Small nucleolar SNORD12/SNORD106: a 93-nucleotide RNA from Synaphobranchus kaupii. The source organism's lineage runs through Eukaryota, Opisthokonta, Bilateria, Teleostei and Synaphobranchus. Its Rfam clan is "SNORD12 clan". On this family, see Huttenhofer et al., EMBO J 2001: "RNomics: an experimental approach that identifies 201 candidates for novel, small, non-messenger RNAs in mouse". The match comes from Rfam's covariance-model search (63 bits). Gene Ontology terms of the family: RNA processing and nucleolus. Rfam classes the family as a C/D-box small nucleolar RNA.

[Rfam]
RNA sequence: AUUGGUGGUAAAUGAUGACCAAGCUUUUUUCCCCAGCAGAUCGAUAUUGUUGACUACCUCAUUUUGUAAGCCAAAAUUGUCUGAUACCCCAGC
Numbered sequence: 001a002u003u004g005g006u007g008g009u010a011a012a013u014g015a016u017g018a019c020c021a022a023g024c025u026u027u028u029u030u031c032c033c034c035a036g037c038a039g040a041u042c043g044a045u046a047u048u049g050u051u052g053a054c055u056a057c058c059u060c061a062u063u064u065u066g067u068a069a070g071c072c073a074a075a076a077u078u079g080u081c082u083g084a085u086a087c088c089c090c091a092g093c
Stems, first nucleotide, its partner, number of pairs: 002092004007088004